A member of the RNA family "Glycine riboswitch aptamer" from Sphingobium sp. SCG-1, 102 nucleotides long. The organism belongs to Sphingobium, within Bacteria.
RNA sequence: GGGCAUGAUACGGGAGAGCGCCGUUGCAGACCUAGUCUGUGGCGGACACCGAAGGAGCAACCGCCCCGGAAUCUCUCAGGUGACAAGGACCGUAUCAUGGGC
Numbered sequence: 001g002g003g004c005a006u007g008a009u010a011c012g013g014g015a016g017a018g019c020g021c022c023g024u025u026g027c028a029g030a031c032c033u034a035g036u037c038u039g040u041g042g043c044g045g046a047c048a049c050c051g052a053a054g055g056a057g058c059a060a061c062c063g064c065c066c067c068g069g070a071a072u073c074u075c076u077c078a079g080g081u082g083a084c085a086a087g088g089a090c091c092g093u094a095u096c097a098u099g100g101g102c
Stems, first nucleotide, its partner, number of pairs: 006097008021045008048081003051077002055075003061069002